[Rfam]
RNA sequence: UCAGCAUCAAUGAUGUUUAACCUCUUGUAGUUAUCCUUGCACUUUGAUUGCCAGUGAAGAAAUUUAUGGGGGAAAUCAUUGACUGAGAUGCUU
Number, nucleotide and partner (000 for none) at each position: 001u000002c000003a092004g091005c090006a089007u088008c087009a000010a000011u000012g000013a000014u000015g000016u000017u000018u000019a000020a000021c000022c000023u000024c000025u000026u000027g000028u000029a000030g000031u000032u000033a000034u000035c000036c000037u000038u000039g000040c000041a000042c000043u000044u000045u000046g000047a000048u000049u000050g000051c000052c000053a000054g000055u000056g000057a000058a000059g000060a000061a000062a000063u000064u000065u000066a000067u000068g000069g000070g000071g000072g000073a000074a000075a000076u000077c000078a000079u000080u000081g000082a000083c000084u000085g000086a000087g008088a007089u006090g005091c004092u003093u000